[Rfam]
RNA sequence: ACAAUGAUACUCCCUUAUAGCUAUAGUCCGAGCGUUAAAAGCGUCGCAGGCAAUAGGUAAGGUUUCGGCAGACCGCCGAGAGGGUGUAAUUCCCGUGG
Numbered sequence: 001a002c003a004a005u006g007a008u009a010c011u012c013c014c015u016u017a018u019a020g021c022u023a024u025a026g027u028c029c030g031a032g033c034g035u036u037a038a039a040a041g042c043g044u045c046g047c048a049g050g051c052a053a054u055a056g057g058u059a060a061g062g063u064u065u066c067g068g069c070a071g072a073c074c075g076c077c078g079a080g081a082g083g084g085u086g087u088a089a090u091u092c093c094c095g096u097g098g
Base pairs, nucleotide, nucleotide: 012095013062014061015060016059017058018057063081064080065079067077068076069075082094083093084092

The record is a 98-nucleotide RNA sequence from Blautia liquoris, which matches "pemK RNA" in Rfam. The source organism's lineage runs through Bacteria, Bacillota, Clostridia, Lachnospirales and Blautia. Rfam classes the family as a cis-regulatory element.